This 77-nucleotide sequence from Jaculus jaculus belongs to the Rfam family "mir-3473 microRNA precursor family". It scores 74 bits against the family's covariance model. The family has 5 seed sequences and 1,094 matches in Rfam 15.1.
RNA sequence: ACUGCUAAACCAUCUCUCCAGCCCUUUAUAACUUUUUAAAAUUUAUUUAUUUAGGGCUGGAGAGAUGGCUUAGCGGU
Number, nucleotide and partner (000 for none) at each position: 001a000002c076003u075004g074005c073006u072007a071008a070009a000010c068011c067012a066013u065014c064015u063016c062017u061018c060019c059020a058021g057022c056023c055024c054025u000026u000027u000028a000029u000030a000031a000032c000033u000034u000035u000036u000037u000038a000039a000040a000041a000042u000043u000044u000045a000046u000047u000048u000049a000050u000051u000052u000053a000054g024055g023056g022057c021058u020059g019060g018061a017062g016063a015064g014065a013066u012067g011068g010069c000070u008071u007072a006073g005074c004075g003076g002077u000